[Rfam]
RNA sequence: UAUUCAUUCUAUGAUGAAUGAUUGAGCAGAAGAGUUCUUGAAGACUAUAUUCAUCACCCAAGACUGAAUAUAUC
Numbered sequence: 001u002a003u004u005c006a007u008u009c010u011a012u013g014a015u016g017a018a019u020g021a022u023u024g025a026g027c028a029g030a031a032g033a034g035u036u037c038u039u040g041a042a043g044a045c046u047a048u049a050u051u052c053a054u055c056a057c058c059c060a061a062g063a064c065u066g067a068a069u070a071u072a073u074c
Base pairs, nucleotide, nucleotide: 001070002069003068029037030036031035
Shown here is a 74-nucleotide RNA from Drosophila yakuba, a member of the family "Small nucleolar RNA CD11". For this family Rfam cites "Genome-wide analyses of two families of snoRNA genes from Drosophila melanogaster, demonstrating the extensive utilization of introns for coding of snoRNAs" (Huang et al., RNA, 2005). The family has 26 seed sequences and 53 matches in Rfam 15.1. It is annotated as a C/D-box small nucleolar RNA.